The record is a 106-nucleotide RNA sequence, which matches "TPP riboswitch aptamer (THI element)" in Rfam.

RNA sequence: GCAUGUGACCGGGGGCGCUUCGAAAGAGGCUGAGAGGCCGCAUGCGGCCGACCCUUUGAACCUGAUCCGGGUAAUACCGGCGGAGGGAGUGUCUUUUGGAGCUGUU
Numbered sequence: 001g002c003a004u005g006u007g008a009c010c011g012g013g014g015g016c017g018c019u020u021c022g023a024a025a026g027a028g029g030c031u032g033a034g035a036g037g038c039c040g041c042a043u044g045c046g047g048c049c050g051a052c053c054c055u056u057u058g059a060a061c062c063u064g065a066u067c068c069g070g071g072u073a074a075u076a077c078c079g080g081c082g083g084a085g086g087g088a089g090u091g092u093c094u095u096u097u098g099g100a101g102c103u104g105u106u
Stems, first nucleotide, its partner, number of pairs: 007093003011055004017030005037048004061086003067080004